RNA sequence: UAACGUUACUGGGGGAGUCCGAAUUGUUCGGACUGAGACGGAAUCGCAUGAGAUUCCGGACCCUUUGCACCUGAUCUGGAUCAUACCAGCGUAGGGAAGUAAUCGGCGAUACGA
Numbered sequence: 001u002a003a004c005g006u007u008a009c010u011g012g013g014g015g016a017g018u019c020c021g022a023a024u025u026g027u028u029c030g031g032a033c034u035g036a037g038a039c040g041g042a043a044u045c046g047c048a049u050g051a052g053a054u055u056c057c058g059g060a061c062c063c064u065u066u067g068c069a070c071c072u073g074a075u076c077u078g079g080a081u082c083a084u085a086c087c088a089g090c091g092u093a094g095g096g097a098a099g100u101a102a103u104c105g106g107c108g109a110u111a112c113g114a
Stems, first nucleotide, its partner, number of pairs: 006102005011064004017033005040057005070095004076089004
The record is a 114-nucleotide RNA sequence from Paenibacillus xylanivorans, which matches "TPP riboswitch aptamer (THI element)" in Rfam. Pairs were carried over by alignment from the consensus structure, which is taken from published work. The match comes from Rfam's covariance-model search (80 bits). Taxonomically the source falls in Paenibacillus (Bacteria, Bacillati, Bacilli, Caryophanales).